[Rfam]
About this RNA: The record is a 59-nucleotide RNA from Sarcophilus harrisii, which matches "mir-7398 microRNA precursor family" in Rfam. The family has 23 seed sequences and 132 matches in Rfam 15.1. NCBI's taxonomy places the organism under Eukaryota, Metazoa, Mammalia, Metatheria, Sarcophilus.

RNA sequence: UGUGUAGAGGGGAGCGAGGGUACCGUGCAAUAUCGGGUAACCUUUCCUACUCUCACAGC
Numbered sequence: 001u002g003u004g005u006a007g008a009g010g011g012g013a014g015c016g017a018g019g020g021u022a023c024c025g026u027g028c029a030a031u032a033u034c035g036g037g038u039a040a041c042c043u044u045u046c047c048u049a050c051u052c053u054c055a056c057a058g059c
Stems, first nucleotide, its partner, number of pairs: 002056003006053004011048001014046001016044003022038003
Description
Pairs were carried over by alignment from the consensus structure, which was predicted with RNAalifold.